[Rfam]
RNA sequence: UCUAGCAAGCAGAAGCACCCGCUUCUCACCUGAUUGACGCAUUGCGCAGUCUGCAGGUUUACGACCAUUUUAUACUUAGUAUACUAAAUCGUAGUGUGGGUGUUUUAUGCGCCCGCACUUUUUUAUUUGA
Number, nucleotide and partner (000 for none) at each position: 001u000002c000003u000004a000005g000006c000007a000008a000009g000010c000011a026012g025013a024014a023015g022016c021017a000018c000019c000020c000021g016022c015023u014024u013025c012026u011027c000028a058029c057030c056031u000032g000033a000034u000035u000036g051037a050038c049039g047040c046041a000042u000043u000044g000045c000046g040047c039048a000049g038050u037051c036052u000053g000054c000055a000056g030057g029058u028059u000060u000061a000062c000063g000064a000065c000066c000067a000068u000069u000070u000071u000072a000073u000074a000075c000076u000077u000078a000079g000080u000081a000082u000083a000084c000085u000086a000087a000088a000089u000090c000091g000092u000093a000094g000095u117096g116097u115098g114099g113100g112101u111102g110103u109104u000105u000106u000107a000108u000109g103110c102111g101112c100113c099114c098115g097116c096117a095118c000119u000120u000121u000122u000123u000124u000125a000126u000127u000128u000129g000130a000